[Rfam]
RNA sequence: CAACCAAUCUAGCGAUAGAUGGCUGAACAGUUAGAAGUCAGCAGAAGUCAUAGUACAAAUAAGGUCGCUCCUUAUUUGGAAGGAC
Numbered sequence: 001c002a003a004c005c006a007a008u009c010u011a012g013c014g015a016u017a018g019a020u021g022g023c024u025g026a027a028c029a030g031u032u033a034g035a036a037g038u039c040a041g042c043a044g045a046a047g048u049c050a051u052a053g054u055a056c057a058a059a060u061a062a063g064g065u066c067g068c069u070c071c072u073u074a075u076u077u078g079g080a081a082g083g084a085c
Base pairs, nucleotide, nucleotide: 001025002024005022007020008019009018010017011016038045039044047085048084049083056078057077058076059075060074061073062072063071